[Rfam]
The family of this 73-nucleotide RNA from Roseovarius mucosus is "Singlet oxygen resistance RNA X".
By type it is a small RNA.
Rfam describes the family as follows. SorX (RSs2461)like SorY is a singlet oxygen induced sRNA that counteracts oxidative stress by targeting mRNA for a transporter in Rhodobacter. It also has an impact on resistance against organic hydroperoxides. It targets SD sequence of potA mRNA via an aSD sequence.
Nucleotides: 073
Stems, first nucleotide, its partner, number of pairs: 009028006046067008
Number, partner (000 for none) and nucleotide at each position: 001000a002000u003000c004000c005000g006000u007000u008000a009028u010027g011026u012025g013024u014023g015000c016000g017000g018000u019000u020000a021000c022000a023014c024013a025012c026011a027010u028009g029000a030000a031000c032000c033000u034000c035000c036000c037000u038000g039000u040000u041000g042000g043000a044000c045000u046067g047066c048065c049064c050063c051062g052061g053060c054000c055000c056000c057000u058000g059000u060053g061052c062051c063050g064049g065048g066047g067046u068000u069000u070000c071000u072000u073000u